A member of the RNA family "LOOT RNA", 124 nucleotides long. It is one of the family's seed sequences.
RNA sequence: UGCCUAACCCUCGUGAGCGAAACUCCGAGGUAUGGCAGAAAAGACCGUCCAAGGCACUGAACCCCGUAUCAGCAAGCCUUGGACGGUCAUAGUUCCGAAAGGGAUUAUGUGUGGCGAAAGCCAC
Numbered sequence: 001u002g003c004c005u006a007a008c009c010c011u012c013g014u015g016a017g018c019g020a021a022a023c024u025c026c027g028a029g030g031u032a033u034g035g036c037a038g039a040a041a042a043g044a045c046c047g048u049c050c051a052a053g054g055c056a057c058u059g060a061a062c063c064c065c066g067u068a069u070c071a072g073c074a075a076g077c078c079u080u081g082g083a084c085g086g087u088c089a090u091a092g093u094u095c096c097g098a099a100a101g102g103g104a105u106u107a108u109g110u111g112u113g114g115c116g117a118a119a120g121c122c123a124c
Stems, first nucleotide, its partner, number of pairs: 001037004009030005015025003045086011057072004088109008111124005